[Rfam]
RNA: Saccharopolyspora sRNA 350
Organism: Saccharopolyspora elongata
Nucleotides: 508
Stems, first nucleotide, its partner, number of pairs: 007389003011385001015381001019327001021325002025322001027320003031316002035313006046304002049301001051299002054233002057230002060227001062225003065111004075103001077102001079100002082097005117222004122217002127212001129210002131206001133204003138199001140197001144195001150191001153189001155187003159183001160178002166173002240290006251281002254278001256277003260271003329342004352379006360373001362370002391431002394428004399423003403418003437476004443470004447465006477507002480502002484499003488495001
Number, partner (000 for none) and nucleotide at each position: 001000u002000u003000g004000u005000a006000c007389g008388u009387g010000u011385g012000g013000u014000g015381c016000c017000a018000c019327g020000c021325g022324g023000c024000c025322u026000g027320g028319c029318c030000c031316u032315c033000g034000g035313c036312c037311a038310g039309c040308a041000g042000g043000u044000g045000c046304g047303c048000g049301c050000c051299g052298a053000a054233g055232u056000a057230c058229u059000c060227g061000c062225c063224g064223u065111c066110g067109g068108c069000g070000a071000g072000c073000a074000c075103g076000u077102c078000c079100a080099g081000c082097a083096c084095g085094g086093u087000g088000u089000c090000g091000u092000c093086g094085c095084c096083g097082u098000a099080u100079u101000c102077g103075c104000c105000g106000g107000u108068g109067c110066c111065g112000a113000u114000c115000u116000u117222g118221u119220u120219g121000a122217c123216c124000u125000u126000g127212c128000c129210g130209u131206g132000g133204g134203c135202g136000a137000u138199g139000a140197g141000c142000a143000c144195g145000a146000c147000c148000u149000g150191g151000u152000c153189g154000g155187c156186g157185g158000c159183c160178u161177g162000u163000c164000c165000g166173g167172c168000g169000g170000u171000g172167g173166c174000g175000a176000u177161c178160a179000c180000c181000u182000g183159g184000c185157c186156c187155g188000g189153c190000u191150c192000g193000a194000a195144c196000u197140c198000c199138u200000g201000c202135u203134g204133c205000a206131c207000g208000a209130a210129c211000c212127g213000g214000u215000c216123g217122g218000c219120c220119a221118g222117c223064g224063c225062g226000c227060c228000c229058a230057g231000c232055a233054c234000c235000g236000a237000a238000u239000c240290g241289u242288c243287g244286u245285c246000g247000a248000a249000a250000c251281c252280g253000c254278g255000c256277a257276g258275c259000a260271g261270c262269g263000g264000c265000a266000g267000u268000u269262c270261g271260c272000c273000g274000a275258g276257u277256u278254c279000c280252u281251g282000c283000g284000g285245g286244a287243u288242g289241a290240c291000c292000c293000g294000c295000a296000c297000g298052u299051u300000c301049g302000a303047g304046c305000c306000g307000g308040u309039g310038u311037u312036g313035g314000u315032g316031a317000a318029g319028g320027u321000g322025a323000u324022c325021c326000g327019u328000c329342c330341g331340u332339c333000c334000c335000c336000g337000a338000c339332g340331g341330c342329g343000u344000a345000g346000g347000u348000c349000a350000g351000c352379c353378g354377g355376c356375g357374g358000u359000u360373g361000a362370c363369c364000c365000g366000g367000u368000a369363g370362g371000a372000g373360c374357c375356c376355g377354c378353c379352g380000a381015g382000a383000u384000g385011u386000c387009c388008a389007c390000c391431c392430a393000c394428g395427g396426c397425a398000g399423c400422a401421u402000c403418c404417g405416c406000a407000c408000c409000a410000g411000c412000c413000a414000c415000c416405g417404c418403g419000a420000g421401g422400u423399g424000g425397u426396g427395c428394c429000c430392u431391g432000c433000a434000u435000c436000u437476g438475c439474g440473g441000g442000a443470c444469g445468g446467a447465c448464u449463u450462g451461g452460u453000c454000g455000u456000g457000g458000u459000g460452g461451c462450c463449a464448g465447g466000u467446u468445c469444c470443g471000c472000g473440c474439c475438g476437c477507c478506g479000c480502g481501g482000u483000g484499c485498c486497g487000a488495g489000g490000c491000u492000c493000u494000g495488c496000g497486c498485g499484g500000c501481c502480u503000g504000g505000u506478c507477g508000a